RT-17 RNA: a 100-nucleotide sequence from Bacteroides ovatus. The family's RNA type in Rfam is small RNA.
RNA sequence: GACCUCGCCUCACGGCGAAAAAUAAACUAAAAACGGAGGUGUCAGUAGACCGGGUAAAUAUCCGGGCCGACCACAACGACGUUAAAGAAAAAGCAGACAA
Numbered sequence: 001g002a003c004c005u006c007g008c009c010u011c012a013c014g015g016c017g018a019a020a021a022a023u024a025a026a027c028u029a030a031a032a033a034c035g036g037a038g039g040u041g042u043c044a045g046u047a048g049a050c051c052g053g054g055u056a057a058a059u060a061u062c063c064g065g066g067c068c069g070a071c072c073a074c075a076a077c078g079a080c081g082u083u084a085a086a087g088a089a090a091a092a093g094c095a096g097a098c099a100a
Base pairs, nucleotide, nucleotide: 006017007016008015009014040075041074042073048068051064052063053062054061
Dot-bracket structure: .....((((....))))......................(((.....(..((((......))))...)....))).........................
The sequence is in the family's curated seed alignment.